[Rfam]
RNA sequence: CUGGUACAUGUAAUGGCACUGGAAGAAUUCACGGGAUUUUUUUCAACAUUCCCGUGUUCUCUUAGUGGCAUACCUAGUACAGG
Numbered sequence: 001c002u003g004g005u006a007c008a009u010g011u012a013a014u015g016g017c018a019c020u021g022g023a024a025g026a027a028u029u030c031a032c033g034g035g036a037u038u039u040u041u042u043u044c045a046a047c048a049u050u051c052c053c054g055u056g057u058u059c060u061c062u063u064a065g066u067g068g069c070a071u072a073c074c075u076a077g078u079a080c081a082g083g
Stems, first nucleotide, its partner, number of pairs: 004080004010074001013071003017067002020064003023060001025059002030056005
Dot-bracket structure: ...((((..(..(((.((.((((.((...(((((.................))))).))).))).)).)))..)..))))...

Rfam assigns this 83-nucleotide RNA from Anopheles gambiae to the family "mir-263 microRNA precursor family". Rfam links the family to the GO terms miRNA-mediated post-transcriptional gene silencing and RISC complex. Taxonomically the source falls in gambiae species complex (Eukaryota, Ecdysozoa, Panarthropoda, Anophelinae). Rfam 15.1 lists 368 matches to the family in 211 species. For this family Rfam cites "Direct sequencing and expression analysis of a large number of miRNAs in Aedes aegypti and a multi-species survey of novel mosquito miRNAs" (Li et al., BMC Genomics, 2009). Clan: mir-182 clan.